[Rfam]
The record is an 81-nucleotide RNA sequence from Morus notabilis, which matches "Small nucleolar RNA J33" in Rfam. Rfam links the family to the GO terms nucleolus and RNA processing. The source organism's lineage runs through Eukaryota, Euphyllophyta, eudicotyledons, Moraceae and Morus.

RNA sequence: CUGUUAGAGGAAUGAUGUACUAUUAUAGGGCCCUUAAGAUGCUUGCCUUUCUUGAUGAUGCGUCUGAGAUGGACGUAAGAG
Number, nucleotide and partner (000 for none) at each position: 001c081002u080003g000004u078005u077006a076007g000008a000009g000010g000011a000012a000013u000014g000015a000016u000017g000018u000019a000020c000021u000022a000023u000024u000025a000026u000027a000028g000029g000030g000031c000032c000033c000034u000035u000036a000037a000038g000039a000040u000041g000042c000043u000044u000045g000046c000047c000048u000049u000050u000051c000052u000053u000054g000055a000056u000057g000058a000059u000060g000061c000062g000063u000064c000065u000066g000067a000068g000069a000070u000071g000072g000073a000074c000075g000076u006077a005078a004079g000080a002081g001